[Rfam]
RNA sequence: UCGUAAUAUUUACAAUUAACUCGUAUAUGUGCUGGAAUGGGCCGGCAUGUCUCUACCCGAUCACCGGAAUGAUUGGACUACGGGAGGAAUAUGAAGAAUG
Numbered sequence: 001u002c003g004u005a006a007u008a009u010u011u012a013c014a015a016u017u018a019a020c021u022c023g024u025a026u027a028u029g030u031g032c033u034g035g036a037a038u039g040g041g042c043c044g045g046c047a048u049g050u051c052u053c054u055a056c057c058c059g060a061u062c063a064c065c066g067g068a069a070u071g072a073u074u075g076g077a078c079u080a081c082g083g084g085a086g087g088a089a090u091a092u093g094a095a096g097a098a099u100g
Stems, first nucleotide, its partner, number of pairs: 020084006029048007057076007
This 100-nucleotide RNA sequence from Paenibacillus sp. TCA20 belongs to the Rfam family "Purine riboswitch aptamer". Rfam links the family to the GO term purine nucleobase biosynthetic process. A search with the family's covariance model found it, with a score of 65 bits.